[Rfam]
RNA sequence: AUCCCUCCGUGUUCACUGUAGGCCUUGAUGUGCGUAGAGUCAUAAGGCACGCGGUGAAUGCCAAGGGUG
Numbered sequence: 001a002u003c004c005c006u007c008c009g010u011g012u013u014c015a016c017u018g019u020a021g022g023c024c025u026u027g028a029u030g031u032g033c034g035u036a037g038a039g040u041c042a043u044a045a046g047g048c049a050c051g052c053g054g055u056g057a058a059u060g061c062c063a064a065g066g067g068u069g
Base pairs, nucleotide, nucleotide: 003067004066005065006064009061010060011059012058013057014056015055016054018052019051023047024046025045026044027043030040